[Rfam]
Nucleotides: 213
Stems, first nucleotide, its partner, number of pairs: 002040002006035001009032002015027004049065003054061001075213005094201006101194005107163003116151003123143002126139003166187002168184002171181004
Number, partner (000 for none) and nucleotide at each position: 001000a002040a003039g004000a005000c006035u007000a008000u009032g010031c011000a012000u013000u014000c015027u016026g017025g018024g019000a020000u021000c022000a023000c024018u025017u026016c027015a028000a029000u030000a031010g032009c033000u034000c035006a036000u037000u038000c039003c040002u041000a042000g043000a044000g045000a046000a047000g048000u049065u050064u051063c052000u053000c054061c055000g056000a057000c058000c059000g060000u061054g062000c063051g064050g065049g066000g067000c068000a069000c070000u071000g072000g073000a074000a075213g076212c077211c078210g079209c080000c081000c082000g083000g084000a085000g086000g087000a088000g089000g090000c091000c092000c093000a094201g095200c096199g097198u098197u099196c100000c101194c102193u103192c104191c105190u106000a107163g108162c109161g110000g111000g112000g113000g114000c115000c116151g117150g118149c119000c120000u121000c122000u123143g124142u125000g126139u127138u128137g129000c130000u131000u132000c133000c134000c135000c136000a137128c138127a139126a140000g141000u142124g143123c144000c145000a146000u147000u148000c149118g150117c151116c152000a153000c154000u155000g156000a157000c158000a159000a160000c161109c162108g163107u164000u165000c166187u167186u168184c169183u170000g171181u172180u173179c174178c175000u176000c177000u178174g179173g180172g181171a182000g183169a184168g185000u186167a187166a188000g189000a190105g191104g192103g193102a194101g195000a196099g197098g198097a199096u200095g201094c202000a203000g204000u205000c206000u207000g208000a209079g210078c211077g212076g213075u